Rfam assigns this 60-nucleotide RNA from Biostraticola tofi to the family "Pseudomonas sRNA P26". The match comes from Rfam's covariance-model search (59 bits).

RNA sequence: AUCUCCCGGAUUGCAGCCUGACAACAGGCUGAUGGCUGGUGGCUUAAUGGUCACCAGCCU
Numbered sequence: 001a002u003c004u005c006c007c008g009g010a011u012u013g014c015a016g017c018c019u020g021a022c023a024a025c026a027g028g029c030u031g032a033u034g035g036c037u038g039g040u041g042g043c044u045u046a047a048u049g050g051u052c053a054c055c056a057g058c059c060u
Base pairs, nucleotide, nucleotide: 014031015030016029017028018027034059035058036057037056038055039054040053041052042051043050
Rfam describes the family as follows. This small RNA (sRNA) was computationally identified in the genome of the opportunistic pathogen Pseudomonas aeruginosa and its expression verified by northern blot analysis. P26 is conserved across many Gammaproteobacteria species and appears to be consistently located between the DNA directed RNA polymerase (beta subunit) and 50S ribosomal protein L7/L12 genes. Lineage of the source: Bacteria > Pseudomonadati > Gammaproteobacteria > Bruguierivoracaceae > Biostraticola.